[Rfam]
RNA sequence: AAAAAAGCAGGGAUCUGUUGCCUUUGUGAACGGGUCUCUCGUAAACCUCGGGGAAAUCACUUCAUUGUUAUUGGGUGAACCUCUGUAGAUAAUAUGAUUAGCAGAAGGUUCAGUAAAUGAUGAUACAUGA
Numbered sequence: 001a002a003a004a005a006a007g008c009a010g011g012g013a014u015c016u017g018u019u020g021c022c023u024u025u026g027u028g029a030a031c032g033g034g035u036c037u038c039u040c041g042u043a044a045a046c047c048u049c050g051g052g053g054a055a056a057u058c059a060c061u062u063c064a065u066u067g068u069u070a071u072u073g074g075g076u077g078a079a080c081c082u083c084u085g086u087a088g089a090u091a092a093u094a095u096g097a098u099u100a101g102c103a104g105a106a107g108g109u110u111c112a113g114u115a116a117a118u119g120a121u122g123a124u125a126c127a128u129g130a
Stems, first nucleotide, its partner, number of pairs: 005048001007046001011037002014034004062123008076112007